The record is a 212-nucleotide RNA sequence, which matches "raiA RNA" in Rfam. It is one of the family's seed sequences.
RNA sequence: CGAGGCAAGGUCUGUGGUUGAAAGUCGAUGCCAGACGCGGGCAAAGCGAUCCACAUAAACCGGUAAAAUUGCCGGCGAACAUGGCGCGUUCUAGACGUAAGUCCAACCGGAACAAUCAUCCGAGAGAAGCAGUAGUGGGGACGGCAGAAACCGUUAGGAGCGAACCUUCCAGUUGGCGAGUGUGGGGGCAAAAACCAGGUCAGCUUACCGGG
Numbered sequence: 001c002g003a004g005g006c007a008a009g010g011u012c013u014g015u016g017g018u019u020g021a022a023a024g025u026c027g028a029u030g031c032c033a034g035a036c037g038c039g040g041g042c043a044a045a046g047c048g049a050u051c052c053a054c055a056u057a058a059a060c061c062g063g064u065a066a067a068a069u070u071g072c073c074g075g076c077g078a079a080c081a082u083g084g085c086g087c088g089u090u091c092u093a094g095a096c097g098u099a100a101g102u103c104c105a106a107c108c109g110g111a112a113c114a115a116u117c118a119u120c121c122g123a124g125a126g127a128a129g130c131a132g133u134a135g136u137g138g139g140g141a142c143g144g145c146a147g148a149a150a151c152c153g154u155u156a157g158g159a160g161c162g163a164a165c166c167u168u169c170c171a172g173u174u175g176g177c178g179a180g181u182g183u184g185g186g187g188g189c190a191a192a193a194a195c196c197a198g199g200u201c202a203g204c205u206u207a208c209c210g211g212g
Base pairs, nucleotide, nucleotide: 001212004209005208007206008205009204012203013202014201015197016196017195018194019193028183029182030181031041034090035089036088037087038086039085050084051083060074062072082190103176104175105174106173107172108122109121110120111119126169127168128167129166135161136160142153143152144151